[Rfam]
RNA sequence: GAUGUGGUUAAUGAUGCUGAACUUUUUUCCCCAUCUUAUCGACCAUGGUGAACACUGACUGAAACAAAGCCAGUUUUGUCUGAAACCACAAU
Numbered sequence: 001g002a003u004g005u006g007g008u009u010a011a012u013g014a015u016g017c018u019g020a021a022c023u024u025u026u027u028u029c030c031c032c033a034u035c036u037u038a039u040c041g042a043c044c045a046u047g048g049u050g051a052a053c054a055c056u057g058a059c060u061g062a063a064a065c066a067a068a069g070c071c072a073g074u075u076u077u078g079u080c081u082g083a084a085a086c087c088a089c090a091a092u
Stems, first nucleotide, its partner, number of pairs: 001092001003090007
This 92-nucleotide RNA sequence from Collichthys lucidus belongs to the Rfam family "Small nucleolar SNORD12/SNORD106". Rfam 15.1 lists 2,264 matches to the family in 650 species. On this family, see Huttenhofer et al., EMBO J 2001: "RNomics: an experimental approach that identifies 201 candidates for novel, small, non-messenger RNAs in mouse". It is annotated as a C/D-box small nucleolar RNA. The match comes from Rfam's covariance-model search (62 bits). Its Rfam clan is "SNORD12 clan".